[Rfam]
Nucleotides: 081
Stems, first nucleotide, its partner, number of pairs: 008073004013068003017064004022059001024057006032049004
Number, partner (000 for none) and nucleotide at each position: 001000a002000g003000g004000c005000u006000a007000g008073g009072a010071g011070a012000a013068a014067g015066a016000a017064g018063c019062a020061g021000g022059g023000u024057c025056u026055g027054a028053u029052u030000c031000a032049u033048a034047g035046c036000c037000c038000c039000u040000g041000u042000g043000g044000c045000a046035g047034c048033u049032g050000u051000u052029a053028a054027u055026c056025a057024g058000c059022c060000c061020u062019u063018g064017c065000c066015u067014c068013u069000c070011u071010c072009u073008u074000u075000c076000u077000c078000u079000u080000g081000g

Description: The record is an 81-nucleotide RNA sequence from Pipistrellus kuhlii, which matches "mir-574 microRNA precursor family" in Rfam. Taxonomically the source falls in Pipistrellus (Eukaryota, Eumetazoa, Amniota, Chiroptera). Gene Ontology terms of the family: miRNA-mediated post-transcriptional gene silencing and RISC complex. The family's consensus secondary structure was predicted with RNAalifold. The family is grouped with related families in Rfam's "mir-574 microRNA precursor clan". For this family Rfam cites "Patterns of known and novel small RNAs in human cervical cancer" (Lui et al., Cancer Res, 2007). A search with the family's covariance model found it, with a score of 82 bits.